[Rfam]
RNA sequence: UAAAUAACUUCAUUUAUACCGUAGACAGCAGGUGCUACCCAUGCUUAAUUUCCUGCCGAGGUGUAUAUAUGUGAACUAGUAAUUAGAUCGCUUGUAUAUAUACUGCCUCCAUGUCUGACGUGGAGGCAUUUCUUUUGAUAAGA
Numbered sequence: 001u002a003a004a005u006a007a008c009u010u011c012a013u014u015u016a017u018a019c020c021g022u023a024g025a026c027a028g029c030a031g032g033u034g035c036u037a038c039c040c041a042u043g044c045u046u047a048a049u050u051u052c053c054u055g056c057c058g059a060g061g062u063g064u065a066u067a068u069a070u071g072u073g074a075a076c077u078a079g080u081a082a083u084u085a086g087a088u089c090g091c092u093u094g095u096a097u098a099u100a101u102a103c104u105g106c107c108u109c110c111a112u113g114u115c116u117g118a119c120g121u122g123g124a125g126g127c128a129u130u131u132c133u134u135u136u137g138a139u140a141a142g143a
Stems, first nucleotide, its partner, number of pairs: 028056005034044002104128010